The family of this 132-nucleotide sequence from Nephila pilipes is "U4atac minor spliceosomal RNA". About the family: U4atac is an essential component of the minor U12-type spliceosome complex which is required for removal of the rarer class of eukaryotic introns (AT-AC, U12-type). The family is grouped with related families in Rfam's "U4 clan". The source organism's lineage runs through Eukaryota, Protostomia, Panarthropoda, Entelegynae and Nephila. It is annotated as a spliceosomal small nuclear RNA.
Nucleotides: 132
Stems, first nucleotide, its partner, number of pairs: 005019001007017003020056003023052007035043002084119005090110004095105003
Number, partner (000 for none) and nucleotide at each position: 001000a002000c003000c004000g005019u006000c007017u008016u009015u010000g011000u012000c013000a014000a015009g016008g017007g018000c019005a020056g021055u022054a023052u024051c025050u026049g027048u028047u029046c030000a031000g032000u033000g034000a035043a036042c037000g038000c039000u040000a041000a042036g043035u044000g045000a046029g047028g048027g049026c050025a051024g052023a053000g054022u055021g056020c057000u058000g059000a060000c061000a062000c063000c064000c065000a066000u067000a068000u069000g070000a071000c072000a073000c074000a075000u076000u077000u078000a079000u080000a081000c082000c083000c084119g085118c086117a087116c088115c089000g090110c091109c092108g093107g094000u095105c096104u097103a098000u099000g100000u101000u102000u103097u104096a105095g106000u107093u108092c109091g110090g111000u112000u113000u114000g115088g116087g117086u118085g119084c120000a121000a122000u123000u124000u125000u126000u127000g128000g129000a130000a131000c132000c